[Rfam]
RNA sequence: UCUGGCGAUGACGACACACUUGCCCUCACUGAGACCAGCCUUGGCUGAUGAGAGCGGUUUUCUGCGCUCAGUGGAGCCGAGCCAGA
Numbered sequence: 001u002c003u004g005g006c007g008a009u010g011a012c013g014a015c016a017c018a019c020u021u022g023c024c025c026u027c028a029c030u031g032a033g034a035c036c037a038g039c040c041u042u043g044g045c046u047g048a049u050g051a052g053a054g055c056g057g058u059u060u061u062c063u064g065c066g067c068u069c070a071g072u073g074g075a076g077c078c079g080a081g082c083c084a085g086a
Stems, first nucleotide, its partner, number of pairs: 001086006
Record summary
This 86-nucleotide RNA from Caloenas nicobarica belongs to the Rfam family "Small nucleolar RNA SNORD103/SNORD85". Taxonomically the source falls in Caloenas (Eukaryota, Euteleostomi, Dinosauria, Columbidae). Pairs were carried over by alignment from the consensus structure. On this family, see Huttenhofer et al., EMBO J 2001: "RNomics: an experimental approach that identifies 201 candidates for novel, small, non-messenger RNAs in mouse". The match comes from Rfam's covariance-model search (60 bits).